[Rfam]
RNA: Small nucleolar RNA SNORD102
RNA sequence: AGCUUGAUGAUGAAUGUCUCUUGUGAUUGCUUGCGCUUUCUGUAUGCAAAGUGAUCACCCAUUUCACCGACACUGAAAGCU
Numbered sequence: 001a002g003c004u005u006g007a008u009g010a011u012g013a014a015u016g017u018c019u020c021u022u023g024u025g026a027u028u029g030c031u032u033g034c035g036c037u038u039u040c041u042g043u044a045u046g047c048a049a050a051g052u053g054a055u056c057a058c059c060c061a062u063u064u065c066a067c068c069g070a071c072a073c074u075g076a077a078a079g080c081u
Stems, first nucleotide, its partner, number of pairs: 001081005